This 149-nucleotide RNA from Aquamicrobium lusatiense belongs to the Rfam family "Alphaproteobacterial sRNA ar45".
The literature on the family includes a 2012 paper in RNA Biol by del Val et al., "A survey of sRNA families in alpha-proteobacteria".
It scores 145 bits against the family's covariance model.
[Rfam]
RNA sequence: GCCCAAAGUCGCACGUGCCUGUGGGCGUCCCCCGGUUCCUCGAAUGGCGAGGACAAUCGGGACGGUACCCGGGAAAUAACGAGCCCGGUCGAUCAAGUGGCCAACCACGUGAUCGAGGACGCCUUGAAGCAACGACGGUGCGGGCCUUU
Numbered sequence: 001g002c003c004c005a006a007a008g009u010c011g012c013a014c015g016u017g018c019c020u021g022u023g024g025g026c027g028u029c030c031c032c033c034g035g036u037u038c039c040u041c042g043a044a045u046g047g048c049g050a051g052g053a054c055a056a057u058c059g060g061g062a063c064g065g066u067a068c069c070c071g072g073g074a075a076a077u078a079a080c081g082a083g084c085c086c087g088g089u090c091g092a093u094c095a096a097g098u099g100g101c102c103a104a105c106c107a108c109g110u111g112a113u114c115g116a117g118g119a120c121g122c123c124u125u126g127a128a129g130c131a132a133c134g135a136c137g138g139u140g141c142g143g144g145c146c147u148u149u
Stems, first nucleotide, its partner, number of pairs: 001145004008136004016131003023124008031061005038052005069088005089116004095110001097108004
The organism belongs to Aquamicrobium, within Bacteria.